[Rfam]
Small nucleolar RNA SNORD82: a 67-nucleotide RNA from Callorhinchus milii. Taxonomically the source falls in Callorhinchus (Eukaryota, Metazoa, Eumetazoa, Bilateria). On this family, see Galardi et al., Mol Cell Biol 2002: "Purified box C/D snoRNPs are able to reproduce site-specific 2'-O-methylation of target RNA in vitro". The family has 27 seed sequences and 649 matches in Rfam 15.1. The family's RNA type in Rfam is C/D-box small nucleolar RNA.

RNA sequence: GACACAGAUGAUGAUCAUUACAAGGGACUUAAUACUGAGUUCUUGAUGAUUCUUGUUCCUGAUGUGC
Numbered sequence: 001g002a003c004a005c006a007g008a009u010g011a012u013g014a015u016c017a018u019u020a021c022a023a024g025g026g027a028c029u030u031a032a033u034a035c036u037g038a039g040u041u042c043u044u045g046a047u048g049a050u051u052c053u054u055g056u057u058c059c060u061g062a063u064g065u066g067c
Base pairs, nucleotide, nucleotide: 003066004065005064006063